The family of this 83-nucleotide RNA from Devosia sp. MC521 is "ZMP/ZTP riboswitch aptamer (pfl RNA motif)".
The source organism's lineage runs through Bacteria, Pseudomonadota, Alphaproteobacteria, Hyphomicrobiales and Devosia.

RNA sequence: UCUGGUUCGUGCGACUGGCGAGUAAAGAUGGGGAACCAUCGGGGAGCGCGGACCUUGUUGAGCCGCUCGCCUGGGCACCCAUU
Number, nucleotide and partner (000 for none) at each position: 001u000002c000003u000004g054005g053006u052007u051008c050009g049010u048011g047012c046013g000014a000015c043016u042017g071018g070019c069020g068021a067022g000023u000024a000025a000026a000027g000028a039029u038030g037031g036032g000033g000034a000035a000036c031037c030038a029039u028040c000041g000042g016043g015044g000045a000046g012047c011048g010049c009050g008051g007052a006053c005054c004055u000056u000057g000058u000059u000060g078061a000062g076063c075064c074065g000066c000067u021068c020069g019070c018071c017072u000073g000074g064075g063076c062077a000078c060079c000080c000081a000082u000083u000